RNA sequence: AGCUUCCUGAAUCUCUGCAGAGAUUUCGUCAGACACCAGCCCAUUAGGUCUGAUCAGACUUCUAAUAUAAGUGAAGUU
Numbered sequence: 001a002g003c004u005u006c007c008u009g010a011a012u013c014u015c016u017g018c019a020g021a022g023a024u025u026u027c028g029u030c031a032g033a034c035a036c037c038a039g040c041c042c043a044u045u046a047g048g049u050c051u052g053a054u055c056a057g058a059c060u061u062c063u064a065a066u067a068u069a070a071g072u073g074a075a076g077u078u
Stems, first nucleotide, its partner, number of pairs: 002077005008071001011068002017062001020061003024058003028054003
A member of the RNA family "mir-3492 microRNA precursor family" from Schistosoma mansoni, 78 nucleotides long. The match comes from Rfam's covariance-model search (49 bits). Taxonomically the source falls in Schistosoma (Eukaryota, Eumetazoa, Protostomia, Rhabditophora). Rfam 15.1 lists 21,496 matches to the family in 13 species. Gene Ontology terms of the family: miRNA-mediated post-transcriptional gene silencing and RISC complex.